About this RNA
The family of this 75-nucleotide RNA sequence from Alligator mississippiensis is "mir-129 microRNA precursor family". Rfam 15.1 lists 1,242 matches to the family in 559 species. The source organism's lineage runs through Eukaryota, Vertebrata, Sauropsida, Archelosauria and Alligator.
[Rfam]
RNA sequence: UCAGAUCUUUUUGCGGUCUGGGCUUGCUGUUCCUCCAACCCACACUCAGGAAGCCCUUACCCCAAAAAGUAUCCG
Numbered sequence: 001u002c003a004g005a006u007c008u009u010u011u012u013g014c015g016g017u018c019u020g021g022g023c024u025u026g027c028u029g030u031u032c033c034u035c036c037a038a039c040c041c042a043c044a045c046u047c048a049g050g051a052a053g054c055c056c057u058u059a060c061c062c063c064a065a066a067a068a069g070u071a072u073c074c075g
Base pairs, nucleotide, nucleotide: 007069008068009067010066011065012064013063015061016060017059020056021055022054023053025051027049028048